RNA sequence: CUCUUAACUUGAUUUCAAAUAUCCCUUAACUUUAUUUAAAGUAUCAGUUUGGUCCUUUCAGUUAAUUUAAUUCAAAAAAAUGUUAAGUUUAAGGACCAAACUAAUACUAAUUAAAUAAGAUAAGAGACCAAACUAAUACUAAUUAAAUAAGUUAAUGGACCAAAAUUUAACUUUUUUUUGAAUUAAAUUAACAGAAAAGACCAAAGUGAUACUUUAAAUAAAAUUAAGGGACUUAAUCGGACUUUUUAUUACUUAUGGAA
Dot-bracket structure: .((.(((..........(.(.(.((((((.((((((.(((............................................................................................................................................................................))).)))))).)))))).)...).)...............))).))..
RNA: MIR2655 microRNA precursor family
Organism: Medicago truncatula